[Rfam]
This 155-nucleotide RNA sequence from Kouleothrix aurantiaca belongs to the Rfam family "FMN riboswitch aptamer (RFN element)".
Taxonomically the source falls in Kouleothrix (Bacteria, Bacillati, Chloroflexota, Roseiflexineae).
RNA sequence: UAGGAUCUUCGGGGCAGGGUGCAAUUCCCGACCGGCGGUAAUGCCAAUUCGCAGCGCAGCAACGCGCCAGCCGAAUGGACAAGCCCGCGAGCCGCAAGGCAGGAGCUGGUGCGAUCCCAGCGCCGACGGUACAGUCCGGAUGGGAGAAGGUCCGC
Numbered sequence: 001u002a003g004g005a006u007c008u009u010c011g012g013g014g015c016a017g018g019g020u021g022c023a024a025u026u027c028c029c030g031a032c033c034g035g036c037g038g039u040a041a042u043g044c045c046a047a048u049u050c051g052c053a054g055c056g057c058a059g060c061a062a063c064g065c066g067c068c069a070g071c072c073g074a075a076u077g078g079a080c081a082a083g084c085c086c087g088c089g090a091g092c093c094g095c096a097a098g099g100c101a102g103g104a105g106c107u108g109g110u111g112c113g114a115u116c117c118c119a120g121c122g123c124c125g126a127c128g129g130u131a132c133a134g135u136c137c138g139g140a141u142g143g144g145a146g147a148a149g150g151u152c153c154g155c
Base pairs, nucleotide, nucleotide: 003153004152005151006150007149008148009147010146017029018028019027031135032134033125034124035088036087037086038085093099105121106120107119108118109117127138128137129136